Shown here is a 205-nucleotide RNA sequence from Paenibacillus polymyxa, a member of the family "Group II catalytic intron D1-D4-5". It scores 174 bits against the family's covariance model. Group II introns are found in rRNA, tRNA and mRNA of organelles in fungi, plants and protists, and also in mRNA in bacteria. Rfam links the family to the GO term Group II intron splicing. Pairs were carried over by alignment from the consensus structure.
RNA sequence: AAGAACUGAUAUUCUGAGGGUUGGAAUGACAGGGUAACGCCUUGAAACGACCCCACUGAUACUCCGACUUGCACAAUCCUAUGUAAGAGGGAAUAUGUAAGGAGCUCGGUGAAGUCGCCUGAGAGUUGUCGUAGUUGCUCAUCAAGAGCCAACCGAAAGCUGUCCAGCGGUGGAUGGUGCAACCUAUAGGGCGGGUGUCCGAAAA
Dot-bracket structure: .................((((((.......((((.....))))....))))))((((......((((((((((.(.((((........)))).).))))))....))))......(((((....(((((((....((............))..))...((((((((....))))))))))))).....)))))))))........
Numbered sequence: 001a002a003g004a005a006c007u008g009a010u011a012u013u014c015u016g017a018g019g020g021u022u023g024g025a026a027u028g029a030c031a032g033g034g035u036a037a038c039g040c041c042u043u044g045a046a047a048c049g050a051c052c053c054c055a056c057u058g059a060u061a062c063u064c065c066g067a068c069u070u071g072c073a074c075a076a077u078c079c080u081a082u083g084u085a086a087g088a089g090g091g092a093a094u095a096u097g098u099a100a101g102g103a104g105c106u107c108g109g110u111g112a113a114g115u116c117g118c119c120u121g122a123g124a125g126u127u128g129u130c131g132u133a134g135u136u137g138c139u140c141a142u143c144a145a146g147a148g149c150c151a152a153c154c155g156a157a158a159g160c161u162g163u164c165c166a167g168c169g170g171u172g173g174a175u176g177g178u179g180c181a182a183c184c185u186a187u188a189g190g191g192c193g194g195g196u197g198u199c200c201g202a203a204a205a
Stems, first nucleotide, its partner, number of pairs: 018053006031043004054197004064109004068101006075094001077092004116193005125183005130155002136151002159178008